[Rfam]
RNA sequence: UCAGUAUUACCUGAUAGGCCAAGGUGCCCUCAGAAAAACCUUGGGAUUAGACUACGAGGGGGUCUGG
Numbered sequence: 001u002c003a004g005u006a007u008u009a010c011c012u013g014a015u016a017g018g019c020c021a022a023g024g025u026g027c028c029c030u031c032a033g034a035a036a037a038a039c040c041u042u043g044g045g046a047u048u049a050g051a052c053u054a055c056g057a058g059g060g061g062g063u064c065u066g067g
Base pairs, nucleotide, nucleotide: 001067002066003065004064006063007062008061010059011058015054016053017052019044020043021042022041023040024039025038026031
MAT2A 3'UTR stem loop E: a 67-nucleotide sequence from Polypterus senegalus. Lineage of the source: Eukaryota > Metazoa > Bilateria > Chordata > Polypterus. A reference for the family is Parker et al. (2011), "New families of human regulatory RNA structures identified by comparative analysis of vertebrate genomes", Genome Res. A search with the family's covariance model found it, with a score of 51 bits. The family's consensus secondary structure is taken from published work.